[Rfam]
RNA sequence: UCCUGAUUGGACGAUAACUGUCACAUGUCAUGUUCUGAUUGGUCAAUGACAAUAACAAUGCAUUUCAUCGUCCAUAGAAUCGAUGUCCAAUCAGAAUGUGACACGUGACUGUCAACAUUU
Numbered sequence: 001u002c003c004u005g006a007u008u009g010g011a012c013g014a015u016a017a018c019u020g021u022c023a024c025a026u027g028u029c030a031u032g033u034u035c036u037g038a039u040u041g042g043u044c045a046a047u048g049a050c051a052a053u054a055a056c057a058a059u060g061c062a063u064u065u066c067a068u069c070g071u072c073c074a075u076a077g078a079a080u081c082g083a084u085g086u087c088c089a090a091u092c093a094g095a096a097u098g099u100g101a102c103a104c105g106u107g108a109c110u111g112u113c114a115a116c117a118u119u120u
Stems, first nucleotide, its partner, number of pairs: 020109004026103001029100003033096004038091005